[Rfam]
RNA sequence: CAACGCUCGUUGGGGCGCCCCGCGCGGGGCUGAGAUGUGCCAGGCACAGCACCCAUCGAACCUGAUCCGGGUCAUGCCGGCGAAGGGAACGGGCUGCGCGCAUCC
Numbered sequence: 001c002a003a004c005g006c007u008c009g010u011u012g013g014g015g016c017g018c019c020c021c022g023c024g025c026g027g028g029g030c031u032g033a034g035a036u037g038u039g040c041c042a043g044g045c046a047c048a049g050c051a052c053c054c055a056u057c058g059a060a061c062c063u064g065a066u067c068c069g070g071g072u073c074a075u076g077c078c079g080g081c082g083a084a085g086g087g088a089a090c091g092g093g094c095u096g097c098g099c100g101c102a103u104c105c
Stems, first nucleotide, its partner, number of pairs: 006093005011055004017030005037047004061086003067080004
Shown here is a 105-nucleotide RNA from Paracoccus alkenifer, a member of the family "TPP riboswitch aptamer (THI element)". The source organism's lineage runs through Bacteria, Pseudomonadati, Pseudomonadota, Paracoccaceae and Paracoccus. Gene Ontology term of the family: thiamine pyrophosphate binding. Rfam describes the family as follows. Vitamin B(1) in its active form thiamin pyrophosphate (TPP) is an essential coenzyme that is synthesised by coupling of pyrimidine and thiazole moieties in bacteria.